[Rfam]
RNA sequence: AUUUUUUCUGCAUCAGUGCAUGCAAAAAUAU
Numbered sequence: 001a002u003u004u005u006u007u008c009u010g011c012a013u014c015a016g017u018g019c020a021u022g023c024a025a026a027a028a029u030a031u
Stems, first nucleotide, its partner, number of pairs: 001031002004028004009024005014018001

Iron response element II: a 31-nucleotide RNA sequence from Eptatretus burgeri. On this family, see Lymboussaki et al., J Hepatol 2003: "The role of the iron responsive element in the control of ferroportin1/IREG1/MTP1 gene expression". IRE, TFRC, SLC40A1, SDHB, SLC11A2, CDC42BPA, ACO2, ALAS2_H.SAPIENS, CDC14A, EPAS1, ALAS2, qoxD, Hao1, NDUFS1, transferrin, Aconitate. Rfam 15.1 lists 5,197 matches to the family in 722 species. Rfam classes the family as a cis-regulatory element.